Overview: A member of the RNA family "FMN riboswitch aptamer (RFN element)" from Paraclostridium benzoelyticum, 119 nucleotides long. The source organism's lineage runs through Bacteria, Bacillati, Bacillota, Clostridia and Paraclostridium. The match comes from Rfam's covariance-model search (118 bits).

[Rfam]
RNA sequence: UAAGAUCUUCGGGGCAGGGUGAAAUUCCCUACCGGCGGUAUAGCCCGCGAGCUACAUUUGUAGCAUGACUUGGUGAGAUUCCAAGGCCGACAGUAAAGUCUGGAUGAGAGAGGAUUAGU
Numbered sequence: 001u002a003a004g005a006u007c008u009u010c011g012g013g014g015c016a017g018g019g020u021g022a023a024a025u026u027c028c029c030u031a032c033c034g035g036c037g038g039u040a041u042a043g044c045c046c047g048c049g050a051g052c053u054a055c056a057u058u059u060g061u062a063g064c065a066u067g068a069c070u071u072g073g074u075g076a077g078a079u080u081c082c083a084a085g086g087c088c089g090a091c092a093g094u095a096a097a098g099u100c101u102g103g104a105u106g107a108g109a110g111a112g113g114a115u116u117a118g119u
Stems, first nucleotide, its partner, number of pairs: 004116007017029003031099002033089002035048004043087002053063001069085005091102003